RNA sequence: AGCUCAUCGAGAGGGGCAGAGGGAAACGGCCCAGUGAAGCCCCGGCAACCAGGCAGUGCACCUCGCGCGAGGCCGACACUGACCCCGGUGCCACGUCCGUCCCACGCCGAGGGUCGGCGCGGGGAAGAUGAGAA
Numbered sequence: 001a002g003c004u005c006a007u008c009g010a011g012a013g014g015g016g017c018a019g020a021g022g023g024a025a026a027c028g029g030c031c032c033a034g035u036g037a038a039g040c041c042c043c044g045g046c047a048a049c050c051a052g053g054c055a056g057u058g059c060a061c062c063u064c065g066c067g068c069g070a071g072g073c074c075g076a077c078a079c080u081g082a083c084c085c086c087g088g089u090g091c092c093a094c095g096u097c098c099g100u101c102c103c104a105c106g107c108c109g110a111g112g113g114u115c116g117g118c119g120c121g122g123g124g125a126a127g128a129u130g131a132g133a134a
Stems, first nucleotide, its partner, number of pairs: 003132006013043005021032003026100004044092004049088002052083001096126001101123003105119005